Rfam assigns this 134-nucleotide RNA from Papio anubis to the family "Small nucleolar RNA SNORA46".
ACA46 is a member of the H/ACA class of snoRNA that guide the sites of modification of uridines to pseudouridines.
Its family is annotated with RNA processing and nucleolus in the Gene Ontology.
It is annotated as an H/ACA-box small nucleolar RNA.
RNA sequence: AGCACUAUAUUUAGAACUAUGGAUGGGAAUAUUCCCCAUUCUUGGUGCUGUAGUGCAAGAAAAAUCCUGGCUCUCUCUGUUGCACAACGGACUUAUGCCAUUCUGCUGUUGCUGUAUGGAGUUAAGGAACAUGA
Numbered sequence: 001a002g003c004a005c006u007a008u009a010u011u012u013a014g015a016a017c018u019a020u021g022g023a024u025g026g027g028a029a030u031a032u033u034c035c036c037c038a039u040u041c042u043u044g045g046u047g048c049u050g051u052a053g054u055g056c057a058a059g060a061a062a063a064a065u066c067c068u069g070g071c072u073c074u075c076u077c078u079g080u081u082g083c084a085c086a087a088c089g090g091a092c093u094u095a096u097g098c099c100a101u102u103c104u105g106c107u108g109u110u111g112c113u114g115u116a117u118g119g120a121g122u123u124a125a126g127g128a129a130c131a132u133g134a
Stems, first nucleotide, its partner, number of pairs: 002056008017044001021041007065128004069123006078116002082112003085108002088105001090103002